[Rfam]
RNA sequence: ACUGUUGAGCCAUCUUUCCAGCCCCCUUUUUUAUUUUCUUAAAAAAAAAAAAAGAGGGCUGGAGAGAUGGCUCAGAGGU
Numbered sequence: 001a002c003u004g005u006u007g008a009g010c011c012a013u014c015u016u017u018c019c020a021g022c023c024c025c026c027u028u029u030u031u032u033a034u035u036u037u038c039u040u041a042a043a044a045a046a047a048a049a050a051a052a053a054g055a056g057g058g059c060u061g062g063a064g065a066g067a068u069g070g071c072u073c074a075g076a077g078g079u
Stems, first nucleotide, its partner, number of pairs: 002078002005075020